[Rfam]
RNA sequence: CUCUCGAUAGCUCAGUUGGUAGAGCGCGGGACUGUAAUAGCUCAUUGUAAUCCUGAGGCCGCGUGUUCGACUCACGCUCGGGAGA
Numbered sequence: 001c002u003c004u005c006g007a008u009a010g011c012u013c014a015g016u017u018g019g020u021a022g023a024g025c026g027c028g029g030g031a032c033u034g035u036a037a038u039a040g041c042u043c044a045u046u047g048u049a050a051u052c053c054u055g056a057g058g059c060c061g062c063g064u065g066u067u068c069g070a071c072u073c074a075c076g077c078u079c080g081g082g083a084g085a
Stems, first nucleotide, its partner, number of pairs: 001084007010025004027055005061077005
RNA: tRNA